[Rfam]
RNA sequence: AACAAUUUGUCCCGCGUCCCUCGGCGUUUUAAAAAAGUCCCGAUUUCUUUCCAAAAAUUGGGACUUUUUUAAAACGCCGUGGGAUGCGGGACAAAUUGUUAA
Numbered sequence: 001a002a003c004a005a006u007u008u009g010u011c012c013c014g015c016g017u018c019c020c021u022c023g024g025c026g027u028u029u030u031a032a033a034a035a036a037g038u039c040c041c042g043a044u045u046u047c048u049u050u051c052c053a054a055a056a057a058u059u060g061g062g063a064c065u066u067u068u069u070u071a072a073a074a075c076g077c078c079g080u081g082g083g084a085u086g087c088g089g090g091a092c093a094a095a096u097u098g099u100u101a102a
Base pairs, nucleotide, nucleotide: 001100002099003098004097005096006095007094008093009092010091011090012089013088014087015086016085017084018083019082020081022079023078024077025076026075027074028073029072030071031070032069033068034067035066036065037064038063039062040061041060042059043058
The record is a 102-nucleotide sequence from Pipistrellus kuhlii, which matches "mir-9261 microRNA precursor family" in Rfam. The match comes from Rfam's covariance-model search (88 bits). Its family is annotated with miRNA-mediated post-transcriptional gene silencing and RISC complex in the Gene Ontology.